[Rfam]
RNA: SAM riboswitch aptamer (S box leader)
Organism: Natronobacillus azotifigens
RNA sequence: CUCUUAUCAAGAGAGGUGGAGGGACUGGCCCUUUGAAGCCUCGGCAACAGACUUUUGAAGUCAUUGUGCCAAAUCCAGCAAGCGACAAGCUUGAAAGAUAAGAA
Numbered sequence: 001c002u003c004u005u006a007u008c009a010a011g012a013g014a015g016g017u018g019g020a021g022g023g024a025c026u027g028g029c030c031c032u033u034u035g036a037a038g039c040c041u042c043g044g045c046a047a048c049a050g051a052c053u054u055u056u057g058a059a060g061u062c063a064u065u066g067u068g069c070c071a072a073a074u075c076c077a078g079c080a081a082g083c084g085a086c087a088a089g090c091u092u093g094a095a096a097g098a099u100a101a102g103a104a
Stems, first nucleotide, its partner, number of pairs: 002103007013042005021031003025078004043070004048066002050062004074096001079093005